[Rfam]
Rfam assigns this 579-nucleotide part of an RNA from Methanococcoides burtonii to the family "Archaeal large subunit ribosomal RNA".
RNA sequence: CCUCUAGGGGGAAGUGAAGACCCCGUGGAGCUUUACUGCAGCCUGUCGCUGGGUUGUGAUUUUGGAUGUACAGUGUAGGUAGGAGACGUCGAAGCCGGUGCGCCAGCAUCGGUGGAGUCGCAAUUGGGACACUACCCUUCCAAGAUUACGACCCUCACUCCGUGAGGAGGACCCCGAUAGGUGGGCAGUUUGCCUGGGGCGGGACGCCCUUGAAAAGAUAUCAAGGGCGCGCAAUGGUUAACUCAAGUGGGUCGGAAACCUACUGAAGAGUGCAAGAGCAUAAGUUAGCCUGACGUGAUUCAGCACAGUAGUGGAUCACGAGACGAAAGUCGGUUCUAGCGAACCUUUAUGUCCCGCUUGGUGCGGGCUAAAGAUGACAGAAAAGUUACCCCGGGGAUAAUUGAGUCGUUGCCGGCAAGAGCACAUAUCGACCCGGCAGCUUGCUACCUCGAUGUCGGUUCUUUCCAUCCUGGCUGUGCAGCAGCAGCCAAGGGUGAGGUUGUUCGCCUAUUAAAGGAGAUCGUGAGCUGGGUUUAGACCGUCGUGAGACAGGUCGGUUACUAUCUACUAGAGGUGUAU
Numbered sequence: 001c002c003u004c005u006a007g008g009g010g011g012a013a014g015u016g017a018a019g020a021c022c023c024c025g026u027g028g029a030g031c032u033u034u035a036c037u038g039c040a041g042c043c044u045g046u047c048g049c050u051g052g053g054u055u056g057u058g059a060u061u062u063u064g065g066a067u068g069u070a071c072a073g074u075g076u077a078g079g080u081a082g083g084a085g086a087c088g089u090c091g092a093a094g095c096c097g098g099u100g101c102g103c104c105a106g107c108a109u110c111g112g113u114g115g116a117g118u119c120g121c122a123a124u125u126g127g128g129a130c131a132c133u134a135c136c137c138u139u140c141c142a143a144g145a146u147u148a149c150g151a152c153c154c155u156c157a158c159u160c161c162g163u164g165a166g167g168a169g170g171a172c173c174c175c176g177a178u179a180g181g182u183g184g185g186c187a188g189u190u191u192g193c194c195u196g197g198g199g200c201g202g203g204a205c206g207c208c209c210u211u212g213a214a215a216a217g218a219u220a221u222c223a224a225g226g227g228c229g230c231g232c233a234a235u236g237g238u239u240a241a242c243u244c245a246a247g248u249g250g251g252u253c254g255g256a257a258a259c260c261u262a263c264u265g266a267a268g269a270g271u272g273c274a275a276g277a278g279c280a281u282a283a284g285u286u287a288g289c290c291u292g293a294c295g296u297g298a299u300u301c302a303g304c305a306c307a308g309u310a311g312u313g314g315a316u317c318a319c320g321a322g323a324c325g326a327a328a329g330u331c332g333g334u335u336c337u338a339g340c341g342a343a344c345c346u347u348u349a350u351g352u353c354c355c356g357c358u359u360g361g362u363g364c365g366g367g368c369u370a371a372a373g374a375u376g377a378c379a380g381a382a383a384a385g386u387u388a389c390c391c392c393g394g395g396g397a398u399a400a401u402u403g404a405g406u407c408g409u410u411g412c413c414g415g416c417a418a419g420a421g422c423a424c425a426u427a428u429c430g431a432c433c434c435g436g437c438a439g440c441u442u443g444c445u446a447c448c449u450c451g452a453u454g455u456c457g458g459u460u461c462u463u464u465c466c467a468u469c470c471u472g473g474c475u476g477u478g479c480a481g482c483a484g485c486a487g488c489c490a491a492g493g494g495u496g497a498g499g500u501u502g503u504u505c506g507c508c509u510a511u512u513a514a515a516g517g518a519g520a521u522c523g524u525g526a527g528c529u530g531g532g533u534u535u536a537g538a539c540c541g542u543c544g545u546g547a548g549a550c551a552g553g554u555c556g557g558u559u560a561c562u563a564u565c566u567a568c569u570a571g572a573g574g575u576g577u578a579u
Base pairs, nucleotide, nucleotide: 001574002573003572004571005570006569007568010566011565012564014561015560022395023394024393025392027391028390029387030386031385032384033383035189036188037187038186042181043180044179045178046177047176048175051154052153053152054151055150056149057148058147059146060145061144062143063142064141065140066139068137078136079135080134081133082132085119086118087117097110098109099108100107101106158169159168160167161166192205193203194202195201206228207227208226209225210224211223231334232333237289238288239287240286241285242284243269244268246264247263248262249261250260251259270279271278294320295319296318297317298316299315300314301313302312322331324329345373346372347371348370349369351368353367354366355365356364404445405444406443408442409439410438411437412436413435414434415433419429420428456531457529458528459527460526461523462520463519464518465517466516469494470493473488474487475486476485477484497509498508499507500506537555538554539553540552541550542549543548